A member of the RNA family "Y RNA" from Otolemur garnettii, 101 nucleotides long. The base pairs follow the family's consensus structure, which is taken from published work.
Nucleotides: 101
Stems, first nucleotide, its partner, number of pairs: 001097001003095006011088001016080002019077002022075001028063003032059002
Number, partner (000 for none) and nucleotide at each position: 001097g002000a003095c004094u005093g006092g007091u008090c009000c010000c011088a012000g013000c014000a015000c016080a017079g018000u019077g020076g021000u022075g023000u024000u025000u026000a027000c028063a029062a030061c031000u032059a033058a034000c035000u036000g037000a038000u039000c040000a041000u042000c043000a044000c045000a046000g047000u048000c049000a050000c051000a052000c053000g054000u055000u056000u057000c058033u059032u060000a061030g062029u063028u064000c065000c066000u067000u068000c069000u070000c071000c072000a073000u074000g075022c076020c077019c078000u079017c080016u081000g082000c083000u084000u085000c086000a087000c088011u089000u090008g091007a092006c093005u094004a095003g096000c097001c098000u099000u100000g101000a